[Rfam]
RNA sequence: GCUGGAGGAGGUGCGACGCCGGUCGGCGAGGUUUCGCCCACCGGCGUUUUCUG
Dot-bracket structure: ................(((((((..((((....))))..))))))).......
Numbered sequence: 001g002c003u004g005g006a007g008g009a010g011g012u013g014c015g016a017c018g019c020c021g022g023u024c025g026g027c028g029a030g031g032u033u034u035c036g037c038c039c040a041c042c043g044g045c046g047u048u049u050u051c052u053g
Stems, first nucleotide, its partner, number of pairs: 017046007026037004
Notes:
A member of the RNA family "ffh sRNA" from Sphingomonas sanxanigenens, 53 nucleotides long. Rfam classes the family as a small RNA.